[Rfam]
RNA sequence: UGCUUAUCAAGAGUGACAGAGGGAAUUGGCCCGAUGAUGUCCAGCAACCUGCAAUUGAAAAAAAGGCAAGGUGCUAAGUCCAACAAAAUGGUCUCCAUUUUGAAAGAUAAGGU
Numbered sequence: 001u002g003c004u005u006a007u008c009a010a011g012a013g014u015g016a017c018a019g020a021g022g023g024a025a026u027u028g029g030c031c032c033g034a035u036g037a038u039g040u041c042c043a044g045c046a047a048c049c050u051g052c053a054a055u056u057g058a059a060a061a062a063a064a065g066g067c068a069a070g071g072u073g074c075u076a077a078g079u080c081c082a083a084c085a086a087a088a089u090g091g092u093c094u095c096c097a098u099u100u101u102g103a104a105a106g107a108u109a110a111g112g113u
Stems, first nucleotide, its partner, number of pairs: 003111006013042001015041003021032003026083004043075004048071002050068003079105001084102006
RNA: SAM riboswitch aptamer (S box leader)